Rfam assigns this 83-nucleotide RNA sequence from Orientia tsutsugamushi to the family "tRNA". A search with the family's covariance model found it, with a score of 56 bits. The family's RNA type in Rfam is transfer RNA. NCBI's taxonomy places the organism under Bacteria, Pseudomonadati, Rickettsieae, Orientia, Orientia tsutsugamushi.
Nucleotides: 083
Base pairs, nucleotide, nucleotide: 001082002081003080004079005078006077007076010025011024012023027043028042029041030040031039059075060074061073062072063071
Number, partner (000 for none) and nucleotide at each position: 001082g002081c003080c004079u005078u006077u007076g008000u009000g010025g011024u012023g013000g014000a015000a016000u017000g018000g019000u020000a021000g022000a023012c024011a025010c026000a027043a028042c029041a030040g031039a032000u033000u034000c035000a036000a037000a038000a039031u040030c041029u042028g043027u044000c045000g046000c047000u048000c049000a050000u051000a052000a053000a054000a055000g056000c057000g058000u059075g060074c061073u062072g063071g064000u065000u066000c067000a068000a069000g070000u071063c072062c073061a074060g075059u076007c077006a078005a079004g080003g081002g082001c083000a